[Rfam]
RNA sequence: CACAUGCUCCUUAGAUCCACCCUUGUGAUUUUAUACUUACUAUAUGAUCUGAUAGUAUGUUUUAAAUCAGCAACUUUACCGGUUGUAUAUCGAGGGUGCUUGAGUCAUUAGCAUGUAAGAGAAAUAUACCUGAGUGACUGAUGUUUUGAUUUUUAUAUACAACUAGUUCUUAGAUAAAAAUCUUAAUCAGUACCUCGGACAGU
Numbered sequence: 001c002a003c004a005u006g007c008u009c010c011u012u013a014g015a016u017c018c019a020c021c022c023u024u025g026u027g028a029u030u031u032u033a034u035a036c037u038u039a040c041u042a043u044a045u046g047a048u049c050u051g052a053u054a055g056u057a058u059g060u061u062u063u064a065a066a067u068c069a070g071c072a073a074c075u076u077u078a079c080c081g082g083u084u085g086u087a088u089a090u091c092g093a094g095g096g097u098g099c100u101u102g103a104g105u106c107a108u109u110a111g112c113a114u115g116u117a118a119g120a121g122a123a124a125u126a127u128a129c130c131u132g133a134g135u136g137a138c139u140g141a142u143g144u145u146u147u148g149a150u151u152u153u154u155a156u157a158u159a160c161a162a163c164u165a166g167u168u169c170u171u172a173g174a175u176a177a178a179a180a181u182c183u184u185a186a187u188c189a190g191u192a193c194c195u196c197g198g199a200c201a202g203u
Stems, first nucleotide, its partner, number of pairs: 002116007010104005018098008026069006035060002040055004070086006130198005137191001139189004149181008160173001162171001

Small nucleolar RNA SNORA53: a 203-nucleotide RNA from Lottia gigantea. Rfam links the family to the GO terms RNA processing and nucleolus. Pairs were carried over by alignment from the consensus structure, which was predicted with RNAalifold. Rfam 15.1 lists 1,090 matches to the family in 800 species. From the family's description: The snoRNA ACA53 belongs to the H/ACA family of pseudouridylation guide snoRNAs.